[Rfam]
Nucleotides: 139
Base pairs, nucleotide, nucleotide: 011125012124013123014122018036019035020034021033022032023031024030025029037120038119039118040117041116042115047056048055057105058104059103065081066080067079068078084099085098086097087096
Number, partner (000 for none) and nucleotide at each position: 001000a002000a003000u004000u005000a006000c007000a008000a009000u010000a011125a012124g013123c014122u015000u016000a017000g018036u019035u020034c021033u022032c023031g024030g025029c026000g027000a028000u029025g030024c031023c032022g033021a034020g035019a036018a037120g038119c039118g040117g041116g042115g043000a044000a045000a046000c047056c048055a049000a050000u051000c052000u053000u054000u055048u056047g057105g058104g059103g060000c061000g062000a063000a064000u065081c066080a067079g068078c069000c070000g071000g072000u073000c074000u075000u076000u077000g078068g079067c080066u081065g082000u083000a084099g085098g086097g087096a088000a089000c090000c091000a092000u093000c094000u095000a096087u097086c098085c099084c100000g101000a102000g103059u104058c105057c106000g107000u108000c109000a110000g111000c112000u113000a114000a115042c116041c117040u118039c119038g120037u121000c122014a123013g124012c125011u126000u127000u128000g129000a130000g131000a132000u133000g134000g135000g136000u137000c138000u139000u